[Rfam]
RNA: glmS glucosamine-6-phosphate activated ribozyme aptamer
RNA sequence: AAAGCAAUAUAAGCGCCAGAGCUUAACGAGCGGAGAACGGGCAAGCAUCGCUUGCAGCGUUAAUGUUAAGCUGACGAGGUAAAGGUGUUCGAAUUAUUCGGCGGGGACCUUUCGGUAAUCCAGACAACCGUAAGCUAGACUGCAAACCAAUUGGGCGACUGAUUGAACAAACAGCUAGCUGUCUGCUAA
Numbered sequence: 001a002a003a004g005c006a007a008u009a010u011a012a013g014c015g016c017c018a019g020a021g022c023u024u025a026a027c028g029a030g031c032g033g034a035g036a037a038c039g040g041g042c043a044a045g046c047a048u049c050g051c052u053u054g055c056a057g058c059g060u061u062a063a064u065g066u067u068a069a070g071c072u073g074a075c076g077a078g079g080u081a082a083a084g085g086u087g088u089u090c091g092a093a094u095u096a097u098u099c100g101g102c103g104g105g106g107a108c109c110u111u112u113c114g115g116u117a118a119u120c121c122a123g124a125c126a127a128c129c130g131u132a133a134g135c136u137a138g139a140c141u142g143c144a145a146a147c148c149a150a151u152u153g154g155g156c157g158a159c160u161g162a163u164u165g166a167a168c169a170a171a172c173a174g175c176u177a178g179c180u181g182u183c184u185g186c187u188a189a
Base pairs, nucleotide, nucleotide: 020072021071022070023069024068025067026066027065081112082111083110084109085108089101090100091099092098113130114129115128116127134179135178136177137176138175140174148165149164150163151162152161153160154159